About this RNA
Shown here is a 63-nucleotide sequence from Canis lupus, a member of the family "mir-328 microRNA precursor family". On this family, see Poy et al., Nature 2004: "A pancreatic islet-specific microRNA regulates insulin secretion".

[Rfam]
RNA sequence: AGGGGGGCAGGAAGGGCUCAGGGAGAAAGUGUGUGCAGCCCCUGGCCCUCUCUGCCCUUCCGU
Numbered sequence: 001a002g003g004g005g006g007g008c009a010g011g012a013a014g015g016g017c018u019c020a021g022g023g024a025g026a027a028a029g030u031g032u033g034u035g036c037a038g039c040c041c042c043u044g045g046c047c048c049u050c051u052c053u054g055c056c057c058u059u060c061c062g063u
Base pairs, nucleotide, nucleotide: 002060003059004058005057006056007055008054009053010052011051013049014048015047016046017045019044020043021042022041023040

The family's consensus secondary structure was predicted with RNAalifold. The organism belongs to Canis lupus, within Eukaryota.